[Rfam]
RNA sequence: CAACCAUCCAGAGCGGCCGAGUGACUUGGCACGAUGACGCCGCAGCAACCCCCUGGUCCCCGCGCUCCGGCGCGGCGAGCGGGCGAGGGUGCUACCGCCACGACCGAUGGAGG
Numbered sequence: 001c002a003a004c005c006a007u008c009c010a011g012a013g014c015g016g017c018c019g020a021g022u023g024a025c026u027u028g029g030c031a032c033g034a035u036g037a038c039g040c041c042g043c044a045g046c047a048a049c050c051c052c053c054u055g056g057u058c059c060c061c062g063c064g065c066u067c068c069g070g071c072g073c074g075g076c077g078a079g080c081g082g083g084c085g086a087g088g089g090u091g092c093u094a095c096c097g098c099c100a101c102g103a104c105c106g107a108u109g110g111a112g113g
Base pairs, nucleotide, nucleotide: 001113004110005109006108007107008106013043014042015041016040017039021032022031023030027100028099029098044093045092046091047090049089050088051085053083054082097105